About this RNA: This 75-nucleotide RNA from Syntrophotalea acetylenivorans belongs to the Rfam family "c-di-GMP-I riboswitch aptamer". Its family is annotated with cyclic-di-GMP binding in the Gene Ontology.
[Rfam]
RNA sequence: AUGUUAACUGGGCAAAACCGGGGAGAUCCGGUGACGCAAAGCCACGGGUCCUUCGAGGAUCGCCGGGUUGUUAAA
Numbered sequence: 001a002u003g004u005u006a007a008c009u010g011g012g013c014a015a016a017a018c019c020g021g022g023g024a025g026a027u028c029c030g031g032u033g034a035c036g037c038a039a040a041g042c043c044a045c046g047g048g049u050c051c052u053u054c055g056a057g058g059a060u061c062g063c064c065g066g067g068u069u070g071u072u073a074a075a
Base pairs, nucleotide, nucleotide: 012037013036017032018031019030020029021028022027040069041068042067043066045065046064047063048060049059050058051057052056